[Rfam]
RNA sequence: GCCCGGCGGUGGGAGUGUGGCCUGGGGCGGCGGUGUGCGUGCAGCGAGUGCGGUGUGGGAGGCGCGCGUGGGCCGAGUGUGAGAGCGCGGGUGUGCGUGCGUGUGCGCGCGCGUGGGGUGCAAGGCGAGCGUGUGCGUCCGCCCCCGCGCCCCUCCCCCGCCCGCCUACACUUUGAUCUUAUUUGAUCGGGUCGUGACCCCAGCCCCGCCGGGCCGCCCCGACAUGAAAAGCAGCCCUCCUGCGAAGCCCCACGGGGCGCUGUGCAGCGAGGCCCCCCCGGCGGCGGCUGCGCCGCGGACCCCGCGAGCCCGGAGCUGGUCCAGCGGGCCCGGCGCUCAGAAGUGAUGAACUGAUCAGAUAGACGAGGCCGGGGCGCGUCCCCGGCCCCUGAUUAUCUCGGCGAUUCUGAUCUGA
Numbered sequence: 001g002c003c004c005g006g007c008g009g010u011g012g013g014a015g016u017g018u019g020g021c022c023u024g025g026g027g028c029g030g031c032g033g034u035g036u037g038c039g040u041g042c043a044g045c046g047a048g049u050g051c052g053g054u055g056u057g058g059g060a061g062g063c064g065c066g067c068g069u070g071g072g073c074c075g076a077g078u079g080u081g082a083g084a085g086c087g088c089g090g091g092u093g094u095g096c097g098u099g100c101g102u103g104u105g106c107g108c109g110c111g112c113g114u115g116g117g118g119u120g121c122a123a124g125g126c127g128a129g130c131g132u133g134u135g136c137g138u139c140c141g142c143c144c145c146c147g148c149g150c151c152c153c154u155c156c157c158c159c160g161c162c163c164g165c166c167u168a169c170a171c172u173u174u175g176a177u178c179u180u181a182u183u184u185g186a187u188c189g190g191g192u193c194g195u196g197a198c199c200c201c202a203g204c205c206c207c208g209c210c211g212g213g214c215c216g217c218c219c220c221g222a223c224a225u226g227a228a229a230a231g232c233a234g235c236c237c238u239c240c241u242g243c244g245a246a247g248c249c250c251c252a253c254g255g256g257g258c259g260c261u262g263u264g265c266a267g268c269g270a271g272g273c274c275c276c277c278c279c280g281g282c283g284g285c286g287g288c289u290g291c292g293c294c295g296c297g298g299a300c301c302c303c304g305c306g307a308g309c310c311c312g313g314a315g316c317u318g319g320u321c322c323a324g325c326g327g328g329c330c331c332g333g334c335g336c337u338c339a340g341a342a343g344u345g346a347u348g349a350a351c352u353g354a355u356c357a358g359a360u361a362g363a364c365g366a367g368g369c370c371g372g373g374g375c376g377c378g379u380c381c382c383c384g385g386c387c388c389c390u391g392a393u394u395a396u397c398u399c400g401g402c403g404a405u406u407c408u409g410a411u412c413u414g415a
Stems, first nucleotide, its partner, number of pairs: 048150004053067005083098001085096004101138003106133005112127002182230003187222004193216002196214001199213003203209002251306001253304005260298002264296002267293003271289004275284002315334005320328003338414004348407003352403002367387004373382002